[Rfam]
RNA sequence: GGUUUCCAUUGGUGCAAAUCCAACACCUCAAUUUGGGAGAAAUAAUCCCCCAUUGUUAACAAACGGUUAUCCAUUACGCGGGGGAAAUCCUAU
Number, nucleotide and partner (000 for none) at each position: 001g000002g000003u000004u000005u000006c000007c000008a000009u023010u022011g021012g020013u000014g000015c000016a000017a000018a000019u000020c012021c011022a010023a009024c000025a000026c000027c000028u000029c000030a000031a000032u000033u000034u000035g000036g000037g000038a000039g000040a000041a000042a000043u000044a000045a000046u000047c000048c083049c082050c081051c080052a074053u073054u000055g071056u000057u069058a068059a067060c066061a000062a000063a000064c000065g000066g060067u059068u058069a057070u000071c055072c000073a053074u052075u000076a000077c000078g000079c000080g051081g050082g049083g048084g000085a000086a000087a000088u000089c000090c000091u000092a000093u000
RNA: Plastid-rps12 3UTR RNA